[Rfam]
RNA sequence: GCAUGGAUGAAUUCUGCACUAGCUUUCCUCAGUAGCUGAUGCAGUCAGACACCAUGCCAGAGCAAAUUCCUUUUUUUCCACUGUGCCUGGUAUGUUUUCUUACGGGAAUGGGCAUGCCCUUGGAAAGGGAAUACAUCA
Numbered sequence: 001g002c003a004u005g006g007a008u009g010a011a012u013u014c015u016g017c018a019c020u021a022g023c024u025u026u027c028c029u030c031a032g033u034a035g036c037u038g039a040u041g042c043a044g045u046c047a048g049a050c051a052c053c054a055u056g057c058c059a060g061a062g063c064a065a066a067u068u069c070c071u072u073u074u075u076u077u078c079c080a081c082u083g084u085g086c087c088u089g090g091u092a093u094g095u096u097u098u099c100u101u102a103c104g105g106g107a108a109u110g111g112g113c114a115u116g117c118c119c120u121u122g123g124a125a126a127g128g129g130a131a132u133a134c135a136u137c138a
Stems, first nucleotide, its partner, number of pairs: 001057006014044005071131003074127007089118009
Dot-bracket structure: ((((((.......(((((.....................))))).......)))))).............((((((((((........(((((((((............)))))))))..))))))).))).......
The record is a 138-nucleotide RNA sequence from Tichodroma muraria, which matches "Small nucleolar RNA SNORA15" in Rfam. A search with the family's covariance model found it, with a score of 73 bits. Lineage of the source: Eukaryota > Teleostomi > Archelosauria > Theropoda > Tichodroma. The literature on the family includes a 2001 paper in EMBO J by Huttenhofer et al., "RNomics: an experimental approach that identifies 201 candidates for novel, small, non-messenger RNAs in mouse". About the family: ACA15 is a member of the H/ACA class of snoRNA that guide the sites of modification of uridines to pseudouridines.